A member of the RNA family "nhaA-I RNA" from Sphingobium wenxiniae, 58 nucleotides long. The source organism's lineage runs through Bacteria, Pseudomonadati, Sphingomonadales, Sphingobiaceae and Sphingobium wenxiniae. About the family: Acidobacteria, Alphaproteobacteria, Betaproteobacteria and Gammaproteobacteria, Verrucomicrobia, cand. division NC10. The base pairs follow the family's consensus structure, which is taken from published work. By type it is a riboswitch.
[Rfam]
RNA sequence: GGGUGCACGCUUGUGAGCUGGCGGGCAGGUUCACAAUGUGUUGGUCGGGCCGCCAGCA
Numbered sequence: 001g002g003g004u005g006c007a008c009g010c011u012u013g014u015g016a017g018c019u020g021g022c023g024g025g026c027a028g029g030u031u032c033a034c035a036a037u038g039u040g041u042u043g044g045u046c047g048g049g050c051c052g053c054c055a056g057c058a
Base pairs, nucleotide, nucleotide: 005026006025008023009022010021011020039058040057041056042055043054044053045052